[Rfam]
Rhodo-rpoB RNA: a 94-nucleotide RNA from Pseudorhodobacter antarcticus. The base pairs follow the family's consensus structure, which is taken from published work. Rfam classes the family as a cis-regulatory element.
RNA sequence: GGUUCGGGAGCUUUUCGGUGGGACGAAAAGCAUGAAUGGAACCACAUAACCCCUAUCGCCGUGCGGCGCAUGACAGUGGCCCGACUGUUACGCG
Dot-bracket structure: (((((....((((((((......)))))))).......))))).......................(((.((((((........)))))).)))
The source organism's lineage runs through Bacteria, Pseudomonadati, Pseudomonadota, Rhodobacterales and Pseudorhodobacter.